[Rfam]
RNA: Small nucleolar RNA ACA64
Organism: Gouania willdenowi
RNA sequence: UCAGUCUGAAAGUGACCUCAGGUGUGAUAAUGACCUGAGGUCAGAUACCUGAGCCCACAGCACAGAGGCACAUUAAGCUUAUCUCCUGCUGUGUGUCAGCAGCUGAUAAAACCCAUGUGCCCACACAC
Numbered sequence: 001u002c003a004g005u006c007u008g009a010a011a012g013u014g015a016c017c018u019c020a021g022g023u024g025u026g027a028u029a030a031u032g033a034c035c036u037g038a039g040g041u042c043a044g045a046u047a048c049c050u051g052a053g054c055c056c057a058c059a060g061c062a063c064a065g066a067g068g069c070a071c072a073u074u075a076a077g078c079u080u081a082u083c084u085c086c087u088g089c090u091g092u093g094u095g096u097c098a099g100c101a102g103c104u105g106a107u108a109a110a111a112c113c114c115a116u117g118u119g120c121c122c123a124c125a126c127a128c
Stems, first nucleotide, its partner, number of pairs: 005052002008049001010046001013043004021035003067121001069119005079109005087101003